[Rfam]
RNA: Vault RNA
Organism: Scyliorhinus torazame
RNA sequence: GCGUCAGCUUGAGAUCACUGGUUACUUCACAGCAUUAACUUAAUUGUAAGUUCAAACCUAUCUCACCUUGGGCGCUGCCUGACGUUUUU
Numbered sequence: 001g002c003g004u005c006a007g008c009u010u011g012a013g014a015u016c017a018c019u020g021g022u023u024a025c026u027u028c029a030c031a032g033c034a035u036u037a038a039c040u041u042a043a044u045u046g047u048a049a050g051u052u053c054a055a056a057c058c059u060a061u062c063u064c065a066c067c068u069u070g071g072g073c074g075c076u077g078c079c080u081g082a083c084g085u086u087u088u089u
Stems, first nucleotide, its partner, number of pairs: 002084006013073001015071002020067002026055002029052001